[Rfam]
RNA sequence: UAGGGUGACCAGCCAUUAUGGUUUGCCUGGGACUGAGGAAUUUGCUGGGAUAUGUCAGUUCCAGGCCAACCAGGCUGGUUGGUCUCCCUGAAGCAAC
Numbered sequence: 001u002a003g004g005g006u007g008a009c010c011a012g013c014c015a016u017u018a019u020g021g022u023u024u025g026c027c028u029g030g031g032a033c034u035g036a037g038g039a040a041u042u043u044g045c046u047g048g049g050a051u052a053u054g055u056c057a058g059u060u061c062c063a064g065g066c067c068a069a070c071c072a073g074g075c076u077g078g079u080u081g082g083u084c085u086c087c088c089u090g091a092a093g094c095a096a097c
Stems, first nucleotide, its partner, number of pairs: 001090005007084009019072005025066012038053001040051003